[Rfam]
RNA: Mu-gpT-DE RNA
RNA sequence: CCCUGACAGUCGCAAUGGGCGACUGACACUAGCCCCGACAGGAGACACUCAUG
Numbered sequence: 001c002c003c004u005g006a007c008a009g010u011c012g013c014a015a016u017g018g019g020c021g022a023c024u025g026a027c028a029c030u031a032g033c034c035c036c037g038a039c040a041g042g043a044g045a046c047a048c049u050c051a052u053g
Base pairs, nucleotide, nucleotide: 002042003041004040005039007025008024009023010022011021